Rfam assigns this 299-nucleotide RNA sequence from Zancudomyces culisetae to the family "ACEA small nucleolar RNA U3". The family is grouped with related families in Rfam's "U3 clan". From the family's description: Small nucleolar RNAs (snoRNAs) are involved in the processing and modification of rRNA in the nucleolus. There are two main classes of snoRNAs: the box C/D class, and the box H/ACA class. Rfam 15.1 lists 2,156 matches to the family in 132 species. A reference for the family is Zwieb (1997), "The uRNA database", Nucleic Acids Res.
[Rfam]
Nucleotides: 299
Stems, first nucleotide, its partner, number of pairs: 002040002006035001008033004015027003049068001051065001054062001075298005094286005099280006109246004119234005249271001251269002254265001
Number, partner (000 for none) and nucleotide at each position: 001000c002040a003039g004000a005000c006035u007000g008033u009032a010031c011030u012000u013000a014000c015027a016026a017025g018000g019000a020000u021000c022000u023000a024000g025017u026016u027015u028000g029000u030011a031010g032009u033008a034000c035006a036000c037000u038000u039003c040002u041000u042000u043000g044000u045000c046000u047000u048000u049068g050000u051065u052000u053000c054062c055000g056000a057000a058000c059000a060000a061000a062054g063000u064000c065051a066000u067000g068049c069000a070000a071000a072000c073000a074000a075298g076297a077296c078295u079294g080000g081000a082000c083000g084000a085000u086000g087000a088000u089000u090000g091000g092000a093000a094286c095285u096284a097283c098282a099280c100279u101278g102277u103276c104275u105000g106000a107000a108000a109246a110245g111244g112243g113000a114000a115000g116000u117000g118000u119234g120233a121232g122231u123230u124000u125000u126000a127000a128000g129000g130000c131000a132000a133000c134000u135000u136000g137000g138000u139000g140000u141000u142000u143000u144000u145000c146000a147000u148000u149000u150000u151000u152000u153000a154000u155000g156000a157000g158000g159000g160000a161000c162000u163000u164000u165000u166000u167000u168000u169000g170000g171000a172000g173000g174000a175000g176000c177000u178000c179000g180000c181000u182000u183000c184000u185000u186000u187000g188000a189000a190000g191000a192000a193000a194000g195000g196000c197000c198000u199000u200000g201000a202000a203000a204000g205000a206000a207000g208000g209000g210000a211000a212000a213000g214000c215000u216000a217000c218000c219000a220000c221000g222000c223000c224000u225000u226000u227000u228000c229000u230123g231122a232121c233120u234119c235000g236000u237000u238000g239000a240000u241000g242000a243112u244111c245110u246109u247000g248000c249271c250000a251269a252268g253000u254265g255000g256000u257000g258000u259000u260000a261000a262000a263000a264000g265254c266000u267000g268252c269251u270000g271249g272000c273000a274000u275104g276103g277102a278101c279100g280099g281000a282098u283097g284096u285095a286094g287000a288000u289000u290000c291000u292000g293000a294079c295078a296077g297076u298075c299000u